[Rfam]
RNA sequence: UUUUUUAUCUCUACACGAUGAGAGAGGUAAAAGCAGAAUUUGAGAACUUAACGUAGCAAGUAGAAAUAAGUGGGGACAUCAACAUUUAUUUUUAAUUUAGCUAUGACUCAAUAGAGCGAUUGCAGUUUUCUGCAAUCAUAUUUUUUAACCCAAAAAAGUAGUGCAUACAAUAUGA
Numbered sequence: 001u002u003u004u005u006u007a008u009c010u011c012u013a014c015a016c017g018a019u020g021a022g023a024g025a026g027g028u029a030a031a032a033g034c035a036g037a038a039u040u041u042g043a044g045a046a047c048u049u050a051a052c053g054u055a056g057c058a059a060g061u062a063g064a065a066a067u068a069a070g071u072g073g074g075g076a077c078a079u080c081a082a083c084a085u086u087u088a089u090u091u092u093u094a095a096u097u098u099a100g101c102u103a104u105g106a107c108u109c110a111a112u113a114g115a116g117c118g119a120u121u122g123c124a125g126u127u128u129u130c131u132g133c134a135a136u137c138a139u140a141u142u143u144u145u146u147a148a149c150c151c152a153a154a155a156a157a158g159u160a161g162u163g164c165a166u167a168c169a170a171u172a173u174g175a
Stems, first nucleotide, its partner, number of pairs: 002033011040111005052105006059096001061094012073080002116164002118137008140159006
RNA: nqrA-II ncRNA motif
Organism: Vespertiliibacter pulmonis